RNA sequence: AUUCAAGGUUAUUCCCUCUCCUAGGGUCCAACUGAUUCCCCUCCCAGGAAUGUAAUAACUUGAAAGAAAACCUGCCAUAUCUGACAUCAUUGGGCAGCAUGGGAUGUGUAUUUCUUUUGGCUUUCUACAUACCUGCUAAGUUU
Numbered sequence: 001a002u003u004c005a006a007g008g009u010u011a012u013u014c015c016c017u018c019u020c021c022u023a024g025g026g027u028c029c030a031a032c033u034g035a036u037u038c039c040c041c042u043c044c045c046a047g048g049a050a051u052g053u054a055a056u057a058a059c060u061u062g063a064a065a066g067a068a069a070a071c072c073u074g075c076c077a078u079a080u081c082u083g084a085c086a087u088c089a090u091u092g093g094g095c096a097g098c099a100u101g102g103g104a105u106g107u108g109u110a111u112u113u114c115u116u117u118u119g120g121c122u123u124u125c126u127a128c129a130u131a132c133c134u135g136c137u138a139a140g141u142u143u
Base pairs, nucleotide, nucleotide: 002064003063004062005061006060007059009057019049020048021047023042024041025040026039073135074134078131079130080129083125084124092115094113096111

Background: Rfam assigns this 143-nucleotide sequence from Jaculus jaculus to the family "Small nucleolar RNA SNORA67". A search with the family's covariance model found it, with a score of 75 bits. Its family is annotated with nucleolus and RNA processing in the Gene Ontology. Rfam 15.1 lists 580 matches to the family in 130 species. Lineage of the source: Eukaryota > Opisthokonta > Metazoa > Boreoeutheria > Jaculus.